The family of this 123-nucleotide RNA from Drosophila willistoni is "U5 spliceosomal RNA". The match comes from Rfam's covariance-model search (86 bits). U5 RNA is a component of both types of known spliceosome. The precise function of this molecule is unknown, though it is known that the 5' loop is required for splice site selection and p220 binding, and that both the 3' stem-loop and the Sm site are important for Sm protein binding and cap methylation. Taxonomically the source falls in Sophophora (Eukaryota, Opisthokonta, Panorpida, Drosophilinae). By type it is a spliceosomal small nuclear RNA. The base pairs follow the family's consensus structure, which is taken from published work.
[Rfam]
RNA sequence: UCACUCUGGCUUCUCUUCAGUUGUCGAAUAAAUCUUUCGCCUUUUACUAAAGAUUUCCGUGGAGAGGGGCACUCUAAUGAGUCUAAAUUGAAUUUUUCAUAGUGCCUGGCGAAAGUCGGGCCA
Numbered sequence: 001u002c003a004c005u006c007u008g009g010c011u012u013c014u015c016u017u018c019a020g021u022u023g024u025c026g027a028a029u030a031a032a033u034c035u036u037u038c039g040c041c042u043u044u045u046a047c048u049a050a051a052g053a054u055u056u057c058c059g060u061g062g063a064g065a066g067g068g069g070c071a072c073u074c075u076a077a078u079g080a081g082u083c084u085a086a087a088u089u090g091a092a093u094u095u096u097u098c099a100u101a102g103u104g105c106c107u108g109g110c111g112a113a114a115g116u117c118g119g120g121c122c123a
Base pairs, nucleotide, nucleotide: 003082004081005080006079009070010069011068012067013066014065015064016063017062018061019060030056031055032054033053034052035051036050037049100123104121105120106119107118108117